[Rfam]
RNA sequence: CGGUUAGCUCCGUGCUGUCGUCUGACCCCCCGACCCGACGGCAGCACGGAGCAUUCCU
Numbered sequence: 001c002g003g004u005u006a007g008c009u010c011c012g013u014g015c016u017g018u019c020g021u022c023u024g025a026c027c028c029c030c031c032g033a034c035c036c037g038a039c040g041g042c043a044g045c046a047c048g049g050a051g052c053a054u055u056c057c058u
Stems, first nucleotide, its partner, number of pairs: 002057002007052016
RNA: F6 TB sRNA
Organism: Mycolicibacterium thermoresistibile